This 212-nucleotide RNA sequence from Drosophila willistoni belongs to the Rfam family "R2 RNA element".
The family has 15 seed sequences and 3,698 matches in Rfam 15.1.
It is annotated as a cis-regulatory element.
About the family: This family represents the 3' UTR region of the R2 retrotransposable element. This family is known to interact with the R2-encoded reverse transcriptase in a reaction known as target primed reverse transcription (TPRT).
On this family, see Ruschak et al., RNA 2004: "Secondary structure models of the 3' untranslated regions of diverse R2 RNAs".
The base pairs follow the family's consensus structure, which is taken from published work.
Rfam links the family to the GO term regulation of reverse transcription.
RNA sequence: GUAUACUCGAAGCUAGAUGUACUAACCUUGGCAUUGUGCUACCUUGGCAUUCCAUCUAAAAAGGUACAAACAUCGCAUUGUCAAAAAGAGGUGGUUUUAGUACGUAGGCGCUUUGGGACUUCAUUGUCCCGAUGAUGCAGCGAAUCGUGCAUAUGAGAUUGUCCAGUAGUUGGUUGCUCGUAUCUUUUAGAAGAUUUCCUACCUCGGCGAUC
Dot-bracket structure: .......................................((((((...............)))))).....(((((...........((((.((.....(((((....((((.((((((......)))))......).))))...))))).((((((...................))))))...............))..)))).))))).